This 108-nucleotide RNA from Pontibacter qinzhouensis belongs to the Rfam family "SAM riboswitch aptamer (S box leader)". The family's consensus secondary structure is taken from published work. Taxonomically the source falls in Pontibacter (Bacteria, Pseudomonadati, Cytophagia, Hymenobacteraceae). It scores 84 bits against the family's covariance model.

RNA sequence: GAUUUAUAAAGAAGAGUGGAGAGACAGGCUCAGUGAAACUCUAGCAACCUAACUGCCAAGGUAAAGGUGCUAAUUCCUGAUUCCGAAAAGUUCGGAAGAAUAUAAAUU
Dot-bracket structure: ((((((((....(((((...(((.[[[[)))......)))))((((.((((.(.......)))..))))))...(]]]].((((((.....))))))..)))))))))